A member of the RNA family "ffh sRNA" from Sphingomonas guangdongensis, 53 nucleotides long. A search with the family's covariance model found it, with a score of 37 bits. The source organism's lineage runs through Bacteria, Pseudomonadati, Alphaproteobacteria, Sphingomonadales and Sphingomonas. The base pairs follow the family's consensus structure, which is taken from published work.
[Rfam]
RNA sequence: CGCUCCGAGGGGCGACGCCGGCCGACGAGGUUUCGUCCGCCGGCGUUUUUCGC
Number, nucleotide and partner (000 for none) at each position: 001c000002g000003c000004u000005c000006c000007g000008a000009g000010g000011g000012g000013c000014g000015a000016c045017g044018c043019c042020g041021g040022c039023c000024g000025a036026c035027g034028a033029g000030g000031u000032u000033u028034c027035g026036u025037c000038c000039g022040c021041c020042g019043g018044c017045g016046u000047u000048u000049u000050u000051c000052g000053c000